[Rfam]
RNA: S-element
RNA sequence: AGUCAAGCGUUUUUGGCAUCGGUUUCCGAUGAAGGGGUCUCUUUUGCCUAUUUGAAGGUGAAGAGACAUG
Numbered sequence: 001a002g003u004c005a006a007g008c009g010u011u012u013u014u015g016g017c018a019u020c021g022g023u024u025u026c027c028g029a030u031g032a033a034g035g036g037g038u039c040u041c042u043u044u045u046g047c048c049u050a051u052u053u054g055a056a057g058g059u060g061a062a063g064a065g066a067c068a069u070g
Base pairs, nucleotide, nucleotide: 010065011064012063013062014061017060018059019058020057024056025055026054028052029051031049035045036044037043